[Rfam]
RNA sequence: UACCUUUGCUGUCCCAAAAGUUAUAUAUACCUGUAAUUGGUCAGGCGUUUCUACAAACUACCGUAAAUAGUGACUUAUAGCUUUGUUGAUUGAAGGA
Numbered sequence: 001u002a003c004c005u006u007u008g009c010u011g012u013c014c015c016a017a018a019a020g021u022u023a024u025a026u027a028u029a030c031c032u033g034u035a036a037u038u039g040g041u042c043a044g045g046c047g048u049u050u051c052u053a054c055a056a057a058c059u060a061c062c063g064u065a066a067a068u069a070g071u072g073a074c075u076u077a078u079a080g081c082u083u084u085g086u087u088g089a090u091u092g093a094a095g096g097a
Stems, first nucleotide, its partner, number of pairs: 018083008030045004057071004